[Rfam]
The family of this 100-nucleotide RNA from Photobacterium gaetbulicola is "Purine riboswitch aptamer". It scores 58 bits against the family's covariance model.
RNA sequence: CGCGCCCAAGAAUUAUUAAAUUGUAUAUUUUUGGUGAGACGGACCAAAAGUUUCUACUUCAGGACCUAUUCCUGAAACUACAAUUUAUCCGUAGCUGGGU
Numbered sequence: 001c002g003c004g005c006c007c008a009a010g011a012a013u014u015a016u017u018a019a020a021u022u023g024u025a026u027a028u029u030u031u032u033g034g035u036g037a038g039a040c041g042g043a044c045c046a047a048a049a050g051u052u053u054c055u056a057c058u059u060c061a062g063g064a065c066c067u068a069u070u071c072c073u074g075a076a077a078c079u080a081c082a083a084u085u086u087a088u089c090c091g092u093a094g095c096u097g098g099g100u
Stems, first nucleotide, its partner, number of pairs: 018086008029049007058076007
The source organism's lineage runs through Bacteria, Pseudomonadati, Gammaproteobacteria, Vibrionaceae and Photobacterium gaetbulicola.
Pairs were carried over by alignment from the consensus structure, which is taken from published work.